Description:
A member of the RNA family "U4atac minor spliceosomal RNA" from Xenopus tropicalis, 126 nucleotides long. Its Rfam clan is "U4 clan". Taxonomically the source falls in Silurana (Eukaryota, Chordata, Pipoidea, Xenopus). It scores 78 bits against the family's covariance model. The base pairs follow the family's consensus structure, which is taken from published work.

RNA sequence: ACCAUCUUUGUUUUGGGGUGAGUGGCUGCUCAAUGAGCGAGUAGUGAGAGUAGUACUGCUAACACCACUGACAACACUUUGGCGCCACUGCUGUUCCCACAGUAGGAAGGUGCAAUUUUUGGAACC
Numbered sequence: 001a002c003c004a005u006c007u008u009u010g011u012u013u014u015g016g017g018g019u020g021a022g023u024g025g026c027u028g029c030u031c032a033a034u035g036a037g038c039g040a041g042u043a044g045u046g047a048g049a050g051u052a053g054u055a056c057u058g059c060u061a062a063c064a065c066c067a068c069u070g071a072c073a074a075c076a077c078u079u080u081g082g083c084g085c086c087a088c089u090g091c092u093g094u095u096c097c098c099a100c101a102g103u104a105g106g107a108a109g110g111u112g113c114a115a116u117u118u119u120u121g122g123a124a125c126c
Stems, first nucleotide, its partner, number of pairs: 006018004020059001022057001025054007037045002082113005089104006
U4atac is an essential component of the minor U12-type spliceosome complex which is required for removal of the rarer class of eukaryotic introns (AT-AC, U12-type). The family's RNA type in Rfam is spliceosomal small nuclear RNA.